[Rfam]
RNA sequence: GGUAAAGUCACUGGAGGCAGCGGUUCAUCGAUCUCUUCCUGGGAAUUUGGUGUGAAAAAUCACAGAACAUGAAUCGAUCGAUAAACCUCUGCAUCCAGCGUUACCC
Numbered sequence: 001g002g003u004a005a006a007g008u009c010a011c012u013g014g015a016g017g018c019a020g021c022g023g024u025u026c027a028u029c030g031a032u033c034u035c036u037u038c039c040u041g042g043g044a045a046u047u048u049g050g051u052g053u054g055a056a057a058a059a060u061c062a063c064a065g066a067a068c069a070u071g072a073a074u075c076g077a078u079c080g081a082u083a084a085a086c087c088u089c090u091g092c093a094u095c096c097a098g099c100g101u102u103a104c105c106c
Stems, first nucleotide, its partner, number of pairs: 013096003018091003022087004027082007036073003
Shown here is a 106-nucleotide RNA from Carica papaya, a member of the family "MIR162_1 microRNA precursor family". The base pairs follow the family's consensus structure, which was predicted with RNAalifold. NCBI's taxonomy places the organism under Eukaryota, Tracheophyta, Euphyllophyta, Pentapetalae, Carica. The literature on the family includes a 2002 paper in Genes Dev by Reinhart et al., "MicroRNAs in plants". Rfam's curators put it in the seed alignment.